[Rfam]
RNA sequence: CGUCCGGGACGACCCGGACGCCGCCCCAUUCCGGCGGGACCGGGACCUGC
Number, nucleotide and partner (000 for none) at each position: 001c020002g019003u018004c017005c016006g015007g014008g013009a000010c000011g000012a000013c008014c007015c006016g005017g004018a003019c002020g001021c000022c000023g000024c000025c000026c000027c000028a000029u000030u000031c000032c000033g000034g050035c049036g048037g047038g046039a000040c000041c000042g000043g000044g000045a000046c038047c037048u036049g035050c034
Overview:
This 50-nucleotide sequence from Streptomyces gardneri belongs to the Rfam family "Guanidine-II riboswitch aptamer (mini-ykkC)". It scores 35 bits against the family's covariance model. Gene Ontology term of the family: regulation of gene expression. Taxonomically the source falls in Streptomyces (Bacteria, Bacillati, Actinomycetota, Actinomycetes).